[Rfam]
RNA sequence: CCUGGUCAAGGAAGCAGGCAAGGCCCAGGCCGCUGCCUGAUUCAACGAGGGGCCGCAUCGCAAGAUGCGGCCCUUUACACAUA
Numbered sequence: 001c002c003u004g005g006u007c008a009a010g011g012a013a014g015c016a017g018g019c020a021a022g023g024c025c026c027a028g029g030c031c032g033c034u035g036c037c038u039g040a041u042u043c044a045a046c047g048a049g050g051g052g053c054c055g056c057a058u059c060g061c062a063a064g065a066u067g068c069g070g071c072c073c074u075u076u077a078c079a080c081a082u083a
Stems, first nucleotide, its partner, number of pairs: 011043003015039004049074008058065002
A member of the RNA family "Bradyrhizobiaceae sRNA BjrC68" from Stenotrophomonas koreensis, 83 nucleotides long. On this family, see Madhugiri et al., RNA Biol 2012: "Small RNAs of the Bradyrhizobium/Rhodopseudomonas lineage and their analysis". It scores 42 bits against the family's covariance model.